RNA sequence: AGGCAUUCUGAAGACCUGCUUACUAGGCUACCAACGGAGGACGUUAGUUUCUCUUCAAUCUAAACUGCCCAGGGGAAAGUCCCCGGACCCAUGGCAGAGAGUGUCCCGCUUUGAAGUGAUACCCUUCUGCAACCUCCGCAUUAAGAGCGCUAAGAUGUUCUCCACGACGGAGUUGGAACAUCCGUCUCAGCCAGAAGUGACGCAGGUAAUGUACAGGGUACAUCAACAGCACGGGGCUCAUUCUCAGAAUGCU
Numbered sequence: 001a002g003g004c005a006u007u008c009u010g011a012a013g014a015c016c017u018g019c020u021u022a023c024u025a026g027g028c029u030a031c032c033a034a035c036g037g038a039g040g041a042c043g044u045u046a047g048u049u050u051c052u053c054u055u056c057a058a059u060c061u062a063a064a065c066u067g068c069c070c071a072g073g074g075g076a077a078a079g080u081c082c083c084c085g086g087a088c089c090c091a092u093g094g095c096a097g098a099g100a101g102u103g104u105c106c107c108g109c110u111u112u113g114a115a116g117u118g119a120u121a122c123c124c125u126u127c128u129g130c131a132a133c134c135u136c137c138g139c140a141u142u143a144a145g146a147g148c149g150c151u152a153a154g155a156u157g158u159u160c161u162c163c164a165c166g167a168c169g170g171a172g173u174u175g176g177a178a179c180a181u182c183c184g185u186c187u188c189a190g191c192c193a194g195a196a197g198u199g200a201c202g203c204a205g206g207u208a209a210u211g212u213a214c215a216g217g218g219u220a221c222a223u224c225a226a227c228a229g230c231a232c233g234g235g236g237c238u239c240a241u242u243c244u245c246a247g248a249a250u251g252c253u
Stems, first nucleotide, its partner, number of pairs: 002253010014207006023072002026069003037053005078238002081236004093105004107118004120178001122176001127172002130169001135166001138163001147160001149158002209223006

This 253-nucleotide RNA sequence from Chiloscyllium punctatum belongs to the Rfam family "RNase MRP". The match comes from Rfam's covariance-model search (123 bits). Its Rfam clan is "RNaseP clan".